Source information
The record is a 95-nucleotide RNA sequence from Thermaerobacillus caldiproteolyticus, which matches "c-di-GMP-I riboswitch aptamer" in Rfam. Rfam's curators write: GEMM was predicted in a large-scale screen for bacterial structured RNA regulatory elements.
[Rfam]
RNA sequence: AUGAAUAUUUGGCAAACUAUCCGAAAGGGUAGGGCGCAAAACUAAAGGGGCUACAUCUAUUCAUUCUUGAAUAGACAUGCCAGCCAGUUGCUCUU
Numbered sequence: 001a002u003g004a005a006u007a008u009u010u011g012g013c014a015a016a017c018u019a020u021c022c023g024a025a026a027g028g029g030u031a032g033g034g035c036g037c038a039a040a041a042c043u044a045a046a047g048g049g050g051c052u053a054c055a056u057c058u059a060u061u062c063a064u065u066c067u068u069g070a071a072u073a074g075a076c077a078u079g080c081c082a083g084c085c086a087g088u089u090g091c092u093c094u095u
Base pairs, nucleotide, nucleotide: 012037013036017032018031019030020029021028022027040089041088042087043086047085048084049081050080051079056075057074058073059072060071061070062069063068